[Rfam]
The record is a 50-nucleotide sequence from Denitrovibrio acetiphilus, which matches "Guanidine-II riboswitch aptamer (mini-ykkC)" in Rfam. The base pairs follow the family's consensus structure, which is taken from published work. Simpler in structure and has fewer highly conserved nucleotide positions than the ykkC-yxkD leader.
RNA sequence: AAAGGAGGACGACCUCCCCCACUUCGGGCAUAACUACCAGGACGACCUGG
Numbered sequence: 001a002a003a004g005g006a007g008g009a010c011g012a013c014c015u016c017c018c019c020c021a022c023u024u025c026g027g028g029c030a031u032a033a034c035u036a037c038c039a040g041g042a043c044g045a046c047c048u049g050g
Stems, first nucleotide, its partner, number of pairs: 004017005037050005
The literature on the family includes a 2007 paper in Nucleic Acids Res by Weinberg et al., "Identification of 22 candidate structured RNAs in bacteria using the CMfinder comparative genomics pipeline". Taxonomically the source falls in Denitrovibrio acetiphilus (Bacteria, Deferribacteres, Deferribacterales, Denitrovibrio).